The record is a 146-nucleotide RNA from Azoarcus taiwanensis, which matches "radC RNA" in Rfam.
Lineage of the source: Bacteria > Pseudomonadati > Betaproteobacteria > Zoogloeaceae > Azoarcus.
The family's RNA type in Rfam is cis-regulatory element.
[Rfam]
RNA sequence: AUCCUGCGGCCAUGCGCUGCUGACCGUCGUCGGCACCAUGCCCUGGCAGCUUCGGUCCUCAAGGCUGCAACGCGGUUCGCCGCGCGGAUCGACCCAGUCCGCUUCGCAUCGCCCACCGCGGACGAGCGUCUUCAUGACGCCGAUGC
Dot-bracket structure: ..........((((....((((((....))))))..)))).....((((((..[[[[.....))))))..(((((....)))))..]]]]...........................(((.....(((((.....)))))...)))